[Rfam]
RNA sequence: GGCUUUCUGAAUCCGUGCUGAGAUUUCGUCAGACACCGACCCACCAGGGGUGAUGAGACUUCCGGGAUAAAUGGUCU
Numbered sequence: 001g002g003c004u005u006u007c008u009g010a011a012u013c014c015g016u017g018c019u020g021a022g023a024u025u026u027c028g029u030c031a032g033a034c035a036c037c038g039a040c041c042c043a044c045c046a047g048g049g050g051u052g053a054u055g056a057g058a059c060u061u062c063c064g065g066g067a068u069a070a071a072u073g074g075u076c077u
Stems, first nucleotide, its partner, number of pairs: 002076001004074001006073001008071001011068003016064002020061003024058007
RNA: mir-3492 microRNA precursor family